[Rfam]
RNA sequence: AAGUAGAUGCACCCUGAUAACUAACUUCCCUUAGCUGGCUAACACCACUGAGGGUUUUUUUG
Dot-bracket structure: ..((......))...............(((((((.(((......))))))))))........